[Rfam]
RNA sequence: AGGAGGAACAGCCCCAGUGGCGGGGCCAGCUCUGGAGCCCUGGAGUCAGCCCCCGCAGUGACUCCGGAGCUCUCUGUCUGCAGCGCCUGGGGGCUCCGCUGAUCU
Numbered sequence: 001a002g003g004a005g006g007a008a009c010a011g012c013c014c015c016a017g018u019g020g021c022g023g024g025g026c027c028a029g030c031u032c033u034g035g036a037g038c039c040c041u042g043g044a045g046u047c048a049g050c051c052c053c054c055g056c057a058g059u060g061a062c063u064c065c066g067g068a069g070c071u072c073u074c075u076g077u078c079u080g081c082a083g084c085g086c087c088u089g090g091g092g093g094c095u096c097c098g099c100u101g102a103u104c105u
Base pairs, nucleotide, nucleotide: 002097003096004095005094009089010088011087012085014083019078020077021076022075023074024073025072028071029070030069031068032067033066034065035064036063040058041057042056
Shown here is a 105-nucleotide sequence from Canis lupus, a member of the family "mir-8834 microRNA precursor family". The family has 2 seed sequences and 13,926 matches in Rfam 15.1. Gene Ontology terms of the family: miRNA-mediated post-transcriptional gene silencing and RISC complex.